[Rfam]
RNA sequence: UCACAAGUUCAAGGCUAUAGCAGAAGUACUCACAGUGCAGUCCUGCCAGGUUUCAAUGAGUCUGCAAGUUCUGCU
Numbered sequence: 001u002c003a004c005a006a007g008u009u010c011a012a013g014g015c016u017a018u019a020g021c022a023g024a025a026g027u028a029c030u031c032a033c034a035g036u037g038c039a040g041u042c043c044u045g046c047c048a049g050g051u052u053u054c055a056a057u058g059a060g061u062c063u064g065c066a067a068g069u070u071c072u073g074c075u
Stems, first nucleotide, its partner, number of pairs: 013043002015040002019075007026038003047064007
The family of this 75-nucleotide RNA from Alligator mississippiensis is "Mammalian CPEB3 ribozyme". Taxonomically the source falls in Alligator (Eukaryota, Opisthokonta, Euteleostomi, Archosauria).